[Rfam]
RNA sequence: AGUCUGUGAUGACAAAUUUCAAGGCUUGUUUCUCAAAACAUUCGCAGUGGCCGACUAAGAGCUUUCGCCUUCGCCUGGCUUGAGAGCUUGUGCUGCUCCAAUCCUUCCUUGGAUGUCUGAGACA
Dot-bracket structure: .(((........................................................((((((...............)))))).................................))).
RNA: Small nucleolar RNA SNORD14
Organism: Nelumbo nucifera